[Rfam]
A member of the RNA family "transfer-messenger RNA" from Yersinia frederiksenii, 363 nucleotides long. Taxonomically the source falls in Yersinia frederiksenii (Bacteria, Pseudomonadati, Enterobacterales, Yersinia). The sequence is in the family's curated seed alignment. The literature on the family includes a 2003 paper in Nucleic Acids Res by Zwieb et al., "tmRDB (tmRNA database)". Clan: tRNA clan.
RNA sequence: GGGGCUGAUUCUGGAUUCGACGGGAUUCGCGAAACCCAAGGUGCAUGCCGAGGUGCGGUGGCCUCGUAAAAAACCGCAAAAAAAUAGUCGCAAACGACGAAAACUACGCACUAGCAGCUUAAUACCCUGCUUAGAGCCCUCUCUCCCUAGCCUCCGCUCUUAGGACGGGGAUCAAGAGAGGUCAAAACUAAAAGAGCUCGUGUGGAAACCUUGCCUGGGGUGGAAGCAUUAAAACUAAUCAGGAUAGUUUGUCAGUGGCGUGUCCAUCCGCAGCUGGCCGGCGAAUGUAAUGAUUGGACUAAGCAUGUAGUACCGACGGUGUAGUAAUUUCGGACGGGGGUUCAAAUCCCCCCAGCUCCACCA
Numbered sequence: 001g002g003g004g005c006u007g008a009u010u011c012u013g014g015a016u017u018c019g020a021c022g023g024g025a026u027u028c029g030c031g032a033a034a035c036c037c038a039a040g041g042u043g044c045a046u047g048c049c050g051a052g053g054u055g056c057g058g059u060g061g062c063c064u065c066g067u068a069a070a071a072a073a074c075c076g077c078a079a080a081a082a083a084a085u086a087g088u089c090g091c092a093a094a095c096g097a098c099g100a101a102a103a104c105u106a107c108g109c110a111c112u113a114g115c116a117g118c119u120u121a122a123u124a125c126c127c128u129g130c131u132u133a134g135a136g137c138c139c140u141c142u143c144u145c146c147c148u149a150g151c152c153u154c155c156g157c158u159c160u161u162a163g164g165a166c167g168g169g170g171a172u173c174a175a176g177a178g179a180g181g182u183c184a185a186a187a188c189u190a191a192a193a194g195a196g197c198u199c200g201u202g203u204g205g206a207a208a209c210c211u212u213g214c215c216u217g218g219g220g221u222g223g224a225a226g227c228a229u230u231a232a233a234a235c236u237a238a239u240c241a242g243g244a245u246a247g248u249u250u251g252u253c254a255g256u257g258g259c260g261u262g263u264c265c266a267u268c269c270g271c272a273g274c275u276g277g278c279c280g281g282c283g284a285a286u287g288u289a290a291u292g293a294u295u296g297g298a299c300u301a302a303g304c305a306u307g308u309a310g311u312a313c314c315g316a317c318g319g320u321g322u323a324g325u326a327a328u329u330u331c332g333g334a335c336g337g338g339g340g341u342u343c344a345a346a347u348c349c350c351c352c353c354a355g356c357u358c359c360a361c362c363a
Stems, first nucleotide, its partner, number of pairs: 001359007021332007034320003040314003044307005049066005054078006111134003114130004138181006145170004151164003156197006201228003214243004247282003251278005258271003262299004266294003336352005
Dot-bracket structure: (((((((.............(((((((......(((...(((.((((([[[[[((((((..]]]]]......))))))................................(((((((.........)))).)))...((((((.((((..(((..[[[[[[)))..)))).....))))))..........]]]]]]...[[[..........((((........]]]...........))))...(((.(((((..(((.[[[[[[[)))..))))).))).........]]].]]]]...)))))....)))...))).....)))))))...(((((.......))))))))))))....